[Rfam]
RNA: GadY
Organism: Shigella boydii
RNA sequence: CUUACUGAGAGCACAAAGUUUCCCGUGCCAACAGGGAGUGUUAUAGCGGUUUAUUAGUCUGGAGACGGCAGACUAUCCUCUUCCCGGUCCCCUAUGCCAGGUUUUUUUUAUGUC
Numbered sequence: 001c002u003u004a005c006u007g008a009g010a011g012c013a014c015a016a017a018g019u020u021u022c023c024c025g026u027g028c029c030a031a032c033a034g035g036g037a038g039u040g041u042u043a044u045a046g047c048g049g050u051u052u053a054u055u056a057g058u059c060u061g062g063a064g065a066c067g068g069c070a071g072a073c074u075a076u077c078c079u080c081u082u083c084c085c086g087g088u089c090c091c092c093u094a095u096g097c098c099a100g101g102u103u104u105u106u107u108u109u110a111u112g113u114c
Base pairs, nucleotide, nucleotide: 004050005049006048007047010042011041012040013039014038021037022036023035024034025032026031055075056074057073058072059071060070061069083101084100086098087097088096